[Rfam]
RNA: rpsB sRNA
Organism: Mesorhizobium wenxiniae
RNA sequence: CACACACGGACUUUGGUGUCUGCCCGGGAGAAAUCCGGCUGAAACCUCCGGUGGCGUUCGAGGACAAAGUCCAGAAAUGCCUGUGUCCGUGGAGGCUAACCGGAAAGGAUACUC
Number, nucleotide and partner (000 for none) at each position: 001c094002a000003c092004a000005c091006a090007c089008g088009g087010a086011c085012u000013u000014u000015g046016g045017u000018g000019u000020c000021u000022g000023c037024c000025c000026g035027g000028g000029a000030g000031a000032a000033a000034u000035c026036c000037g023038g000039c000040u000041g000042a000043a000044a000045c016046c015047u000048c000049c000050g000051g000052u000053g081054g080055c079056g078057u077058u076059c000060g000061a000062g000063g000064a000065c000066a000067a000068a000069g000070u000071c000072c000073a000074g000075a000076a058077a057078u056079g055080c054081c053082u000083g000084u000085g011086u010087c009088c008089g007090u006091g005092g003093a000094g001095g000096c000097u000098a000099a000100c000101c000102g000103g000104a000105a000106a000107g000108g000109a000110u000111a000112c000113u000114c000